The record is a 107-nucleotide RNA from Raphanus sativus, which matches "MIR390 microRNA precursor family" in Rfam. Its family is annotated with RISC complex and miRNA-mediated post-transcriptional gene silencing in the Gene Ontology. On this family, see Adai et al., Genome Res 2005: "Computational prediction of miRNAs in Arabidopsis thaliana". The organism belongs to Raphanus, within Eukaryota. It scores 102 bits against the family's covariance model. The family's consensus secondary structure was predicted with WAR.
[Rfam]
RNA sequence: GAGAAGUAGCUGUAAAGCUCAGGAGGGAUAGCGCCAUGACUCACCGAUACUAGAAAUGUUUGUCUAUAUAUUGGCGCUAUCCAUCCUGAGUUCUAUGGCUUCUUCUU
Numbered sequence: 001g002a003g004a005a006g007u008a009g010c011u012g013u014a015a016a017g018c019u020c021a022g023g024a025g026g027g028a029u030a031g032c033g034c035c036a037u038g039a040c041u042c043a044c045c046g047a048u049a050c051u052a053g054a055a056a057u058g059u060u061u062g063u064c065u066a067u068a069u070a071u072u073g074g075c076g077c078u079a080u081c082c083a084u085c086c087u088g089a090g091u092u093c094u095a096u097g098g099c100u101u102c103u104u105c106u107u
Stems, first nucleotide, its partner, number of pairs: 010098001016092009026082010
The family has 16 seed sequences and 649 matches in Rfam 15.1.